Shown here is a 236-nucleotide sequence from an Anaplasmataceae bacterium, a member of the family "HNH endonuclease-associated RNA and ORF (HEARO) RNA". The source organism's lineage runs through Bacteria, Pseudomonadati, Pseudomonadota, Rickettsiales and Anaplasmataceae.
RNA sequence: GUCAACUACCCCAGCCUAAAAGCUGAGGCUUGAGGGAAAUCUCAAGCCCCAUGUUGACCAGACUAAGUAUCUGAGCUUGAUAGGCUACGAAGAUACUAUGUUACCGGCGAAUGUAUAGUUACCUUGGGAUGCUUCCUCAGUCCCAAGCCCUAAGACAUGUGUUUAAACACGUAGAAGGGUUAAGCGGGUGAUGCAUGUAUGUAAACCGUCGGAUAACUUUGUCGAGGGGAGCGAAC
Dot-bracket structure: ((((((...((((.(......).)).))(((((((....)))))))......))))))..(((.((((((((..................)))))))..((((((((((.........((..((((((((..[[[[[[.))))))))....)).(((((((((...((.(((.((....))..))).)))))))))))........)))))).)))).).)))..]]]]]].....